[Rfam]
RNA sequence: UGGUCCGGCGCGACGCUAAAUACUUUCAAUUCCUGAGAGGGAAAGUACCCAACCCAACCCCUCCGGCUCCCCGUGCACGCUGCGUCACCCACACGAGUGGGAUUCGCCAACUGGGCUGGAUUCUGGGUCCGUUGGUUGGCAUAUGCUCACGGCGACCGACCCCGAACAGACGACGGCCCCCGGCCGGGACUAGCGAUCCCGAUCGAGGGCCUGACCAACGAGGAAGCAGUACCUUCCCG
Number, nucleotide and partner (000 for none) at each position: 001u000002g000003g000004u000005c000006c000007g219008g000009c000010g216011c000012g000013a000014c075015g074016c073017u000018a000019a000020a000021u000022a000023c000024u000025u000026u000027c000028a000029a000030u000031u000032c000033c000034u000035g000036a000037g000038a000039g000040g000041g000042a000043a000044a000045g000046u000047a000048c000049c000050c000051a000052a000053c000054c000055c000056a000057a000058c000059c000060c000061c000062u000063c000064c000065g000066g000067c000068u000069c000070c000071c000072c000073g016074u015075g014076c000077a000078c000079g000080c000081u000082g000083c000084g000085u100086c099087a098088c097089c000090c095091a000092c000093a000094c000095g090096a000097g088098u087099g086100g085101g000102a000103u000104u000105c000106g000107c000108c000109a000110a000111c000112u000113g000114g000115g000116c000117u149118g148119g147120a000121u000122u000123c000124u000125g000126g000127g000128u000129c000130c000131g000132u000133u000134g000135g000136u000137u000138g000139g000140c000141a000142u000143a000144u000145g000146c000147u119148c118149a117150c000151g000152g000153c000154g000155a000156c000157c000158g000159a000160c000161c000162c000163c000164g000165a000166a000167c000168a000169g000170a000171c000172g000173a000174c000175g211176g210177c209178c208179c207180c000181c205182g204183g000184c000185c000186g200187g199188g198189a197190c000191u000192a000193g000194c000195g000196a000197u189198c188199c187200c186201g000202a000203u000204c182205g181206a000207g179208g178209g177210c176211c175212u000213g000214a000215c000216c010217a000218a000219c007220g000221a000222g237223g236224a235225a234226g233227c000228a000229g000230u000231a000232c000233c226234u225235u224236c223237c222238c000239g000

This 239-nucleotide RNA sequence from Streptomyces purpureus belongs to the Rfam family "Streptomyces sRNA 4677". The pairing is the family consensus, mapped onto this sequence. The literature on the family includes a 2014 paper in PLoS One by Hindra et al., "Complex intra-operonic dynamics mediated by a small RNA in Streptomyces coelicolor". A search with the family's covariance model found it, with a score of 111 bits. The organism belongs to Streptomyces, within Bacteria.